Rfam assigns this 155-nucleotide RNA from Filifactor alocis to the family "glmS glucosamine-6-phosphate activated ribozyme aptamer". The family's consensus secondary structure is taken from published work. From the family's description: This entry contains a glucosamine-6-phosphate activated ribozyme that is found in the mRNA for GlmS. GlmS is an enzyme that uses fructose-6-phosphate and glutamine to generate glucosamine-6-phosphate. The ribozyme catalyses self cleavage of the glmS mRNA that is thought to regulate GlmS activity. The literature on the family includes a 2004 paper in Nature by Winkler et al., "Control of gene expression by a natural metabolite-responsive ribozyme". Taxonomically the source falls in Filifactor alocis (Bacteria, Bacillati, Clostridia, Peptostreptococcales).
RNA sequence: AAAAACAAAAAAGCGCCUGAGCCUUUCCGACAAGAAAGGUUGACGAGGAAUGGAAUGAUCGAGAUAUUCGGCGGAUAUUCCAUAGGUAUCACAGCCUUAGAACAACACAAAACACAGGAGUAAUCUUGUGAACAAAACUUGUUCCGUGACUUUCU
Numbered sequence: 001a002a003a004a005a006c007a008a009a010a011a012a013g014c015g016c017c018u019g020a021g022c023c024u025u026u027c028c029g030a031c032a033a034g035a036a037a038g039g040u041u042g043a044c045g046a047g048g049a050a051u052g053g054a055a056u057g058a059u060c061g062a063g064a065u066a067u068u069c070g071g072c073g074g075a076u077a078u079u080c081c082a083u084a085g086g087u088a089u090c091a092c093a094g095c096c097u098u099a100g101a102a103c104a105a106c107a108c109a110a111a112a113c114a115c116a117g118g119a120g121u122a123a124u125c126u127u128g129u130g131a132a133c134a135a136a137a138c139u140u141g142u143u144c145c146g147u148g149a150c151u152u153u154c155u
Stems, first nucleotide, its partner, number of pairs: 020041008050083005059071004084097004100144006113130007